The family of this 94-nucleotide sequence from Arthrobacter sp. MYb227 is "SAM riboswitch aptamer (S box leader)". The source organism's lineage runs through Bacteria, Actinomycetota, Actinomycetes, Micrococcales and Arthrobacter. Pairs were carried over by alignment from the consensus structure, which is taken from published work. A search with the family's covariance model found it, with a score of 57 bits. Rfam describes the family as follows. The SAM riboswitch is found upstream of a number of genes which code for proteins involved in methionine or cysteine biosynthesis in Gram-positive bacteria.
RNA sequence: UACCCAUUACGAGCGGCUAAGAGAUCUGGCUCAGUGACGCCGCAGCAACCACCUUCAGCGAAGGGAACGGUGCUACAGCCAGGAACAAUGGAGA
Dot-bracket structure: (..(((((....(((((...(((..[[[[)))......)))))((((.((.(((........)))...))))))...(]]]]...))))))..)